[Rfam]
RNA sequence: AUGUCUAUGUAAUCGCUCAAAUGACUCAUUUGAGAGGAAAGUCCAUGCUCACACGAGCUGAGAUGCUCGUAGUGUUCGUGCUUGACGAAACGAUAAGUCAAGGUAGCUACAAUGAGGUAGCUAACGGCAGGGAAAUGACCUGUAGCUUUCAAAGUAUGGUCAAACUACCUUUAAAGUGCCACAGUGACGAACUUAAUUGGAAACAAUUAAGGUGGAACGCGGUAAACCCCACGAGUGAGCAACCCAAAUUAUGGUAGGGGCACUUUUUGCAGGGAAUUCAACCUAGCAAAAAGACAAGUGAUCUUUCACUUGUAGAUAGAUGAUUACGCCUGGAGUACGAGGUUGACCGCCGUUUGCAGUACGAUAGGACAGAACAUGGCUUACAAGA
Numbered sequence: 001a002u003g004u005c006u007a008u009g010u011a012a013u014c015g016c017u018c019a020a021a022u023g024a025c026u027c028a029u030u031u032g033a034g035a036g037g038a039a040a041g042u043c044c045a046u047g048c049u050c051a052c053a054c055g056a057g058c059u060g061a062g063a064u065g066c067u068c069g070u071a072g073u074g075u076u077c078g079u080g081c082u083u084g085a086c087g088a089a090a091c092g093a094u095a096a097g098u099c100a101a102g103g104u105a106g107c108u109a110c111a112a113u114g115a116g117g118u119a120g121c122u123a124a125c126g127g128c129a130g131g132g133a134a135a136u137g138a139c140c141u142g143u144a145g146c147u148u149u150c151a152a153a154g155u156a157u158g159g160u161c162a163a164a165c166u167a168c169c170u171u172u173a174a175a176g177u178g179c180c181a182c183a184g185u186g187a188c189g190a191a192c193u194u195a196a197u198u199g200g201a202a203a204c205a206a207u208u209a210a211g212g213u214g215g216a217a218c219g220c221g222g223u224a225a226a227c228c229c230c231a232c233g234a235g236u237g238a239g240c241a242a243c244c245c246a247a248a249u250u251a252u253g254g255u256a257g258g259g260g261c262a263c264u265u266u267u268u269g270c271a272g273g274g275a276a277u278u279c280a281a282c283c284u285a286g287c288a289a290a291a292a293g294a295c296a297a298g299u300g301a302u303c304u305u306u307c308a309c310u311u312g313u314a315g316a317u318a319g320a321u322g323a324u325u326a327c328g329c330c331u332g333g334a335g336u337a338c339g340a341g342g343u344u345g346a347c348c349g350c351c352g353u354u355u356g357c358a359g360u361a362c363g364a365u366a367g368g369a370c371a372g373a374a375c376a377u378g379g380c381u382u383a384c385a386a387g388a
Base pairs, nucleotide, nucleotide: 004388005387006386008328009327010326011325012324013323014322016034017033018032019031020030021029039382040381041380043379044378045377046376047375048239049238050237051236052235053070054069055068056067057066058065076234077233078232079231080230081102082101083100084099085098086097103125104123105122106121107120108119109118126229127228129170130169131168137161138160139159140158145155146154147153176227177226178223179222180221192211193210194209195208196207197206198205199204243259244258245257263293264292265291266290267289268288269287294313295312296311297310298309299308300307301306330367331366332365335362336361337360338359